[Rfam]
Rfam assigns this 156-nucleotide RNA from Populus tomentosa to the family "MIR2912 microRNA precursor family". It scores 121 bits against the family's covariance model. NCBI's taxonomy places the organism under Eukaryota, Gunneridae, rosids, Saliceae, Populus.

RNA sequence: UUUAGAACUCGAGAUAUGAGCUGAACACUAAACAGUGUUUGGGUUGCAAGACAGAUUUCGACUUCUCUUUUCUUUCUACAAUUUGAACUUAAAAACAGUCGCUUUGUAUCUUGGACUUUGCAUGAAAGUUUUAGGCCUAUGUCUUAACUUUCCAUC
Numbered sequence: 001u002u003u004a005g006a007a008c009u010c011g012a013g014a015u016a017u018g019a020g021c022u023g024a025a026c027a028c029u030a031a032a033c034a035g036u037g038u039u040u041g042g043g044u045u046g047c048a049a050g051a052c053a054g055a056u057u058u059c060g061a062c063u064u065c066u067c068u069u070u071u072c073u074u075u076c077u078a079c080a081a082u083u084u085g086a087a088c089u090u091a092a093a094a095a096c097a098g099u100c101g102c103u104u105u106g107u108a109u110c111u112u113g114g115a116c117u118u119u120g121c122a123u124g125a126a127a128g129u130u131u132u133a134g135g136c137c138u139a140u141g142u143c144u145u146a147a148c149u150u151u152c153c154a155u156c
Base pairs, nucleotide, nucleotide: 003154005152006151007150009146011145012144013143014142015141016140017139018138020136021134022133023132024131025130027129028128029127035123036122037121041119042118043117045115048112049111050110051109054105055104058101060099062098063097068092069091073087074086